Record summary:
Shown here is a 93-nucleotide RNA sequence from Lytechinus variegatus, a member of the family "mir-2005 microRNA precursor family". The family has 3 seed sequences and 7 matches in Rfam 15.1. Rfam's curators put it in the seed alignment. NCBI's taxonomy places the organism under Eukaryota, Bilateria, Deuterostomia, Toxopneustidae, Lytechinus.
RNA sequence: GUCAAUCUCUGGUGCAGUCCAAUAGGGAGGGCAUUGCAGGUGAUAUUUGAAAGCCCUGCAGUGGCUCCUAUUGGUCAAUACCAGAUGAUUGAC
Numbered sequence: 001g002u003c004a005a006u007c008u009c010u011g012g013u014g015c016a017g018u019c020c021a022a023u024a025g026g027g028a029g030g031g032c033a034u035u036g037c038a039g040g041u042g043a044u045a046u047u048u049g050a051a052a053g054c055c056c057u058g059c060a061g062u063g064g065c066u067c068c069u070a071u072u073g074g075u076c077a078a079u080a081c082c083a084g085a086u087g088a089u090u091g092a093c
Stems, first nucleotide, its partner, number of pairs: 001093007008085007017076001019074009031065001032063008040054002